[Rfam]
RNA sequence: GCUCCUGCAAGAGUCAAGUGCACGCGCUUUGGGACAGUGAAACAAAGGAUGUUCACAAAGCCCAUACACUUCACCCUUUAGGAGAG
Numbered sequence: 001g002c003u004c005c006u007g008c009a010a011g012a013g014u015c016a017a018g019u020g021c022a023c024g025c026g027c028u029u030u031g032g033g034a035c036a037g038u039g040a041a042a043c044a045a046a047g048g049a050u051g052u053u054c055a056c057a058a059a060g061c062c063c064a065u066a067c068a069c070u071u072c073a074c075c076c077u078u079u080a081g082g083a084g085a086g
Stems, first nucleotide, its partner, number of pairs: 002084006009078003013074002016071005026061006032054005
A member of the RNA family "mir-350 microRNA precursor family" from Myotis davidii, 86 nucleotides long. The family has 5 seed sequences and 121 matches in Rfam 15.1. Gene Ontology terms of the family: RISC complex and miRNA-mediated post-transcriptional gene silencing. The source organism's lineage runs through Eukaryota, Amniota, Theria, Yangochiroptera and Myotis. A reference for the family is Poy et al. (2004), "A pancreatic islet-specific microRNA regulates insulin secretion", Nature.